[Rfam]
RNA sequence: UGAAAUAUAUGAUGAUCUCAACCUACCUUGAACUCUCUCACUGACUACUUGAUGACACUAAGAGAUCUGAUAUUCUU
Numbered sequence: 001u002g003a004a005a006u007a008u009a010u011g012a013u014g015a016u017c018u019c020a021a022c023c024u025a026c027c028u029u030g031a032a033c034u035c036u037c038u039c040a041c042u043g044a045c046u047a048c049u050u051g052a053u054g055a056c057a058c059u060a061a062g063a064g065a066u067c068u069g070a071u072a073u074u075c076u077u
Base pairs, nucleotide, nucleotide: 002076004074005073006072007071

Shown here is a 77-nucleotide RNA sequence from Dipodomys ordii, a member of the family "Small nucleolar RNA SNORD81".
The base pairs follow the family's consensus structure, which was predicted with PFOLD.
A reference for the family is Smith and Steitz (1998), "Classification of gas5 as a multi-small-nucleolar-RNA (snoRNA) host gene and a member of the 5'-terminal oligopyrimidine gene family reveals common features of snoRNA host genes", Mol Cell Biol.